RNA sequence: UUUGCCUCUCGAAUAACCGGAUUUGGAUCAUAAGACCAUGUUCGGUUCAGACAGGGGCGUAUAAUAAUGUAAGGGGAUAACUAUGUUUUUUUACUGUACUUUUUAUCCUUCCCGAAUCCCUUUUGAGGGAAAGGAACGAUUUUU
Numbered sequence: 001u002u003u004g005c006c007u008c009u010c011g012a013a014u015a016a017c018c019g020g021a022u023u024u025g026g027a028u029c030a031u032a033a034g035a036c037c038a039u040g041u042u043c044g045g046u047u048c049a050g051a052c053a054g055g056g057g058c059g060u061a062u063a064a065u066a067a068u069g070u071a072a073g074g075g076g077a078u079a080a081c082u083a084u085g086u087u088u089u090u091u092u093a094c095u096g097u098a099c100u101u102u103u104u105a106u107c108c109u110u111c112c113c114g115a116a117u118c119c120c121u122u123u124u125g126a127g128g129g130a131a132a133g134g135a136a137c138g139a140u141u142u143u144u
Base pairs, nucleotide, nucleotide: 003059004058005057006056007055009054015047016046017045018044019043020042021041022040024038025037026036070132072109073108076107077106078105080104083101085099086098088096117130118129119128120127
RNA: Small nucleolar RNA snoR138
Organism: Macleaya cordata